[Rfam]
Nucleotides: 074
Stems, first nucleotide, its partner, number of pairs: 001073007010026004028044005050066005
Number, partner (000 for none) and nucleotide at each position: 001073g002072g003071g004070c005069u006068a007067u008000u009000a010026g011025c012024u013023c014000a015000g016000u017000u018000g019000g020000u021000u022000a023013g024012a025011g026010c027000g028044u029043u030042g031041c032040u033000u034000u035000g036000a037000u038000a039000a040032g041031g042030c043029a044028a045000a046000a047000g048000u049000c050066g051065a052064a053063a054062g055000u056000u057000c058000a059000a060000a061000u062054c063053u064052u065051u066050c067007a068006u069005a070004g071003c072002c073001c074000a

The record is a 74-nucleotide RNA from Chlamydomonas reinhardtii, which matches "tRNA" in Rfam. NCBI's taxonomy places the organism under Eukaryota, Viridiplantae, Chlorophyceae, Chlamydomonadales, Chlamydomonas. Rfam describes the family as follows. Transfer RNA (tRNA) molecules are approximately 80 nucleotides in length. Their secondary structure includes four short double-helical elements and three loops (D, anti-codon, and T loops).